[Rfam]
RNA sequence: GGCCCGGGGAAGUGGAGGGGGAUCGCCCGGGUCUCUGUUGGCAGAGUCCGGGCGAUCCUCUGAGACCCUCCGGGCC
Numbered sequence: 001g002g003c004c005c006g007g008g009g010a011a012g013u014g015g016a017g018g019g020g021g022a023u024c025g026c027c028c029g030g031g032u033c034u035c036u037g038u039u040g041g042c043a044g045a046g047u048c049c050g051g052g053c054g055a056u057c058c059u060c061u062g063a064g065a066c067c068c069u070c071c072g073g074g075c076c
Base pairs, nucleotide, nucleotide: 001076002075003074004073005072006071007070008069009068012066013065017061018060019059020058021057022056023055024054025053026052027051028050029049030048031047033046034045035044036043037042
Shown here is a 76-nucleotide RNA sequence, a member of the family "Epstein-Barr virus stable intronic sequence RNA 2". The family has 2 seed sequences and 171 matches in Rfam 15.1. The family's RNA type in Rfam is non-coding RNA gene. Pairs were carried over by alignment from the consensus structure. The sequence is in the family's curated seed alignment.